Nucleotides: 113
Base pairs, nucleotide, nucleotide: 007057008056009055010054011053012052015047016046020044021043022041023038024037025036026035027034028033058084059083060082061081062080063079064078065077088111092106093105094104
Number, partner (000 for none) and nucleotide at each position: 001000g002000g003000g004000a005000a006000g007057u008056g009055u010054a011053c012052c013000u014000a015047g016046g017000g018000u019000u020044c021043c022041g023038c024037c025036c026035c027034g028033c029000u030000u031000g032000g033028g034027c035026g036025g037024g038023g039000g040000a041022c042000u043021g044020g045000a046016c047015c048000a049000a050000g051000c052012g053011g054010u055009a056008c057007a058084g059083g060082c061081c062080g063079c064078c065077g066000g067000u068000g069000a070000a071000a072000a073000a074000u075000c076000g077065c078064g079063g080062c081061g082060g083059u084058u085000a086000c087000a088111c089000c090000g091000u092106g093105g094104g095000g096000a097000u098000a099000a100000a101000a102000g103000a104094c105093c106092c107000g108000a109000g110000c111088g112000g113000a
Rfam assigns this 113-nucleotide RNA from Desulfofundulus salinus to the family "Guanidine-I riboswitch aptamer". About the family: This family represents a conserved RNA structure found upstream of the ykkC and yxkD genes in Bacillus subtilis and related genes in other bacteria. The function of this family is unclear although it has been suggested that it may function to switch on efflux pumps and detoxification systems in response to harmful environmental molecules. The family has 100 seed sequences and 1,509 matches in Rfam 15.1.